[Rfam]
RNA sequence: GGUCGAUGAUGACAAAGAAGUUUUCUGAGGGCACAGGGGAAUUACACUCCUUUACCCUCUUGGCUCCCAGCAGUCCCUGUUCUAUCAUGCCAUAGUAGAGCUGUGAUGGAGUAAGAGAUUGCUGACAGUUUGGGAUUAAUUCAGUUCCAAUUCUCCACAGUGAAGGGAGUUGUGGCACCAAAUGUAAUCCAACAGACCUGCUUAAGAGGAGCUCAUGGUGGUGGGGUGUCUUAUUUGCUGUGCGUGAUCAAAGGUUUUCAAGCUGAGACC
Numbered sequence: 001g002g003u004c005g006a007u008g009a010u011g012a013c014a015a016a017g018a019a020g021u022u023u024u025c026u027g028a029g030g031g032c033a034c035a036g037g038g039g040a041a042u043u044a045c046a047c048u049c050c051u052u053u054a055c056c057c058u059c060u061u062g063g064c065u066c067c068c069a070g071c072a073g074u075c076c077c078u079g080u081u082c083u084a085u086c087a088u089g090c091c092a093u094a095g096u097a098g099a100g101c102u103g104u105g106a107u108g109g110a111g112u113a114a115g116a117g118a119u120u121g122c123u124g125a126c127a128g129u130u131u132g133g134g135a136u137u138a139a140u141u142c143a144g145u146u147c148c149a150a151u152u153c154u155c156c157a158c159a160g161u162g163a164a165g166g167g168a169g170u171u172g173u174g175g176c177a178c179c180a181a182a183u184g185u186a187a188u189c190c191a192a193c194a195g196a197c198c199u200g201c202u203u204a205a206g207a208g209g210a211g212c213u214c215a216u217g218g219u220g221g222u223g224g225g226g227u228g229u230c231u232u233a234u235u236u237g238c239u240g241u242g243c244g245u246g247a248u249c250a251a252a253g254g255u256u257u258u259c260a261a262g263c264u265g266a267g268a269c270c
Stems, first nucleotide, its partner, number of pairs: 001270004036249002045228006052221001064211004068124007081110009090100001132190001134189005147175003153169004
RNA: Small Cajal body specific RNA 6